[Rfam]
RNA sequence: ACGUCGCCCGGUGCGGCGUACGUGCUCCGCUCGUGGGGGCUCUGGUGGCGGGGGUGGUGCCGUGUCGGCGCAGCACCACCCCCGCGCC
Numbered sequence: 001a002c003g004u005c006g007c008c009c010g011g012u013g014c015g016g017c018g019u020a021c022g023u024g025c026u027c028c029g030c031u032c033g034u035g036g037g038g039g040c041u042c043u044g045g046u047g048g049c050g051g052g053g054g055u056g057g058u059g060c061c062g063u064g065u066c067g068g069c070g071c072a073g074c075a076c077c078a079c080c081c082c083c084g085c086g087c088c
Stems, first nucleotide, its partner, number of pairs: 001019007020046002024042001026039003048085013062071003

About this RNA
The family of this 88-nucleotide RNA from Streptomyces scabiei is "Streptomyces RNA 6106". Rfam describes the family as follows. Identified by deep sequencing of transcriptome at the end of exponential growth phase. Appears smaller on northern blot than sequencing transcript. This indicates processing step. Streptomyces specific. The pairing is the family consensus, mapped onto this sequence.